[Rfam]
RNA: Betaproteobacteria toxic small RNA
Organism: Noviherbaspirillum humi
RNA sequence: UGUCUCCUCUGAUUCUCCUUGAAUUGGAUUUGCCCGGCCCCGCAAGGCGCCGGGCUUUUUUC
Numbered sequence: 001u002g003u004c005u006c007c008u009c010u011g012a013u014u015c016u017c018c019u020u021g022a023a024u025u026g027g028a029u030u031u032g033c034c035c036g037g038c039c040c041c042g043c044a045a046g047g048c049g050c051c052g053g054g055c056u057u058u059u060u061u062c
Stems, first nucleotide, its partner, number of pairs: 008028008032055007